[Rfam]
RNA sequence: GCUGGUGCUUUAGAUAGAUUCAGGGAAACCUGGGGCGGUGAUAAUGUAUUGCAAGCAUUAUUGCCGUUUACAUA
Numbered sequence: 001g002c003u004g005g006u007g008c009u010u011u012a013g014a015u016a017g018a019u020u021c022a023g024g025g026a027a028a029c030c031u032g033g034g035g036c037g038g039u040g041a042u043a044a045u046g047u048a049u050u051g052c053a054a055g056c057a058u059u060a061u062u063g064c065c066g067u068u069u070a071c072a073u074a
Base pairs, nucleotide, nucleotide: 021032022031023030024029034068035067036066037065038064039063040062041061042060043059044058045057046056047055
COG2827 RNA: a 74-nucleotide RNA from Hungatella hathewayi.
Pairs were carried over by alignment from the consensus structure, which is taken from published work.
It is one of the family's seed sequences.
The family's RNA type in Rfam is small RNA.
Taxonomically the source falls in Hungatella hathewayi (Bacteria, Bacillati, Lachnospirales, Lachnospiraceae).